[Rfam]
Nucleotides: 089
Stems, first nucleotide, its partner, number of pairs: 005055002009051004015045002017077005028041004066084005
Number, partner (000 for none) and nucleotide at each position: 001000c002000c003000g004000g005055g006054u007000a008000c009051u010050c011049g012048c013000g014000a015045c016044u017077g018076g019075c020074g021073c022000a023000g024000c025000g026000a027000g028041g029040u030039g031038g032000a033000a034000c035000u036000g037000a038031c039030c040029a041028c042000c043000g044016g045015g046000g047000a048012g049011c050010g051009a052000c053000c054006g055005c056000a057000g058000g059000c060000a061000a062000c063000g064000c065000c066084g067083c068082a069081c070080c071000g072000c073021g074020c075019g076018c077017c078000u079000g080070g081069g082068u083067g084066u085000g086000g087000u088000g089000u
Background:
Rfam assigns this 89-nucleotide sequence from Asanoa hainanensis to the family "ZMP/ZTP riboswitch aptamer (pfl RNA motif)".